Background: This 74-nucleotide RNA sequence from Cuniculiplasma sp. C_DKE belongs to the Rfam family "tRNA". The source organism's lineage runs through Archaea, Methanobacteriati, Thermoplasmata, Cuniculiplasmataceae and Cuniculiplasma. By type it is a transfer RNA. The base pairs follow the family's consensus structure, which is taken from published work. Transfer RNA (tRNA) molecules are approximately 80 nucleotides in length.

RNA sequence: GGGGUUGUAGCUUAGCUAGGUAGAGCGCCUGGCUCAUAACCAGGUGGUCAUUGGUUCGAAUCCGAUCAGCCCCA
Numbered sequence: 001g002g003g004g005u006u007g008u009a010g011c012u013u014a015g016c017u018a019g020g021u022a023g024a025g026c027g028c029c030u031g032g033c034u035c036a037u038a039a040c041c042a043g044g045u046g047g048u049c050a051u052u053g054g055u056u057c058g059a060a061u062c063c064g065a066u067c068a069g070c071c072c073c074a
Stems, first nucleotide, its partner, number of pairs: 001073007010026004028044005050066005